This 79-nucleotide RNA from Croceicoccus pelagius belongs to the Rfam family "Makes More Granules Regulator RNA (mmgR)". The base pairs follow the family's consensus structure. The family is grouped with related families in Rfam's "suhB sRNA clan". Its family is annotated with DNA-templated transcription, termination, response to nitrogen compound and protein binding in the Gene Ontology. It is annotated as a small RNA. The literature on the family includes a 2005 paper in Genome Biol by Corbino et al., "Evidence for a second class of S-adenosylmethionine riboswitches and other regulatory RNA motifs in alpha-proteobacteria".
[Rfam]
RNA sequence: AGAGGGGGCCUUACAGGCAUCCUCUCCCAAACUUACACGGCCCGGUCGGUCUUUCCGCCCGGGCCUUUUUUUGUCUCGA
Numbered sequence: 001a002g003a004g005g006g007g008g009c010c011u012u013a014c015a016g017g018c019a020u021c022c023u024c025u026c027c028c029a030a031a032c033u034u035a036c037a038c039g040g041c042c043c044g045g046u047c048g049g050u051c052u053u054u055c056c057g058c059c060c061g062g063g064c065c066u067u068u069u070u071u072u073g074u075c076u077c078g079a
Base pairs, nucleotide, nucleotide: 008018009017010016011015040064041063042062043061044060045059047057048056